[Rfam]
RNA sequence: GUCGGAUACGGGGACAUGAAACCAAUAACUGUUGGUGGUAAAAUAGUGGGUUCGCUCUGUGCCAUAGCAGGUGUGCUAACCAUUGCUCUACCUGUCCCGGUCAUUGUGUCGAAC
Dot-bracket structure: ((..(.(((((.(((..(.(................((((........(((.........)))..........)))).................).)..))).))))).)..))
Numbered sequence: 001g002u003c004g005g006a007u008a009c010g011g012g013g014a015c016a017u018g019a020a021a022c023c024a025a026u027a028a029c030u031g032u033u034g035g036u037g038g039u040a041a042a043a044u045a046g047u048g049g050g051u052u053c054g055c056u057c058u059g060u061g062c063c064a065u066a067g068c069a070g071g072u073g074u075g076c077u078a079a080c081c082a083u084u085g086c087u088c089u090a091c092c093u094g095u096c097c098c099g100g101u102c103a104u105u106g107u108g109u110c111g112a113a114c
Stems, first nucleotide, its partner, number of pairs: 001114002005110001007108005013102003018097001020095001037077004049063003

This 114-nucleotide sequence from Albula goreensis belongs to the Rfam family "Potassium channel RNA editing signal". The family's consensus secondary structure is taken from published work. Rfam classes the family as a cis-regulatory element. On this family, see Bhalla et al., Nat Struct Mol Biol 2004: "Control of human potassium channel inactivation by editing of a small mRNA hairpin". Taxonomically the source falls in Albula (Eukaryota, Deuterostomia, Vertebrata, Albulinae). This family represents a group of sequences related to the human potassium channel Kv1.1 hairpin element which directs the efficient modification of an adenosine to inosine by an adenosine deaminase acting on RNA (ADAR).